Shown here is a 52-nucleotide RNA sequence, a member of the family "nhaA-I RNA".
It is annotated as a riboswitch.
[Rfam]
RNA sequence: GGGUUCGGGAAUCAGUUUCCCGGAGGCUAACGAGGUAGUCGGGCCGCUAUCU
Numbered sequence: 001g002g003g004u005u006c007g008g009g010a011a012u013c014a015g016u017u018u019c020c021c022g023g024a025g026g027c028u029a030a031c032g033a034g035g036u037a038g039u040c041g042g043g044c045c046g047c048u049a050u051c052u
Stems, first nucleotide, its partner, number of pairs: 005023007033052007
The base pairs follow the family's consensus structure, which is taken from published work. About the family: Acidobacteria, Alphaproteobacteria, Betaproteobacteria and Gammaproteobacteria, Verrucomicrobia, cand. division NC10. It is one of the family's seed sequences.